A member of the RNA family "DUF3800-V RNA" from Thiohalophilus thiocyanatoxydans, 97 nucleotides long. NCBI's taxonomy places the organism under Bacteria, Pseudomonadota, Gammaproteobacteria, Thiohalophilaceae, Thiohalophilus.

[Rfam]
RNA sequence: UGAACAGACGGGUAAAUCCUAUUAUGUGCCUGGUAUGUUCCCUUCCAGCGGUUGGCAAGAAUACCAGGAACCUAGACAUAAUAGGGGCCGUCUUUUU
Numbered sequence: 001u002g003a004a005c006a007g008a009c010g011g012g013u014a015a016a017u018c019c020u021a022u023u024a025u026g027u028g029c030c031u032g033g034u035a036u037g038u039u040c041c042c043u044u045c046c047a048g049c050g051g052u053u054g055g056c057a058a059g060a061a062u063a064c065c066a067g068g069a070a071c072c073u074a075g076a077c078a079u080a081a082u083a084g085g086g087g088c089c090g091u092c093u094u095u096u097u
Stems, first nucleotide, its partner, number of pairs: 002096003009090002023080005030067007041055002045051002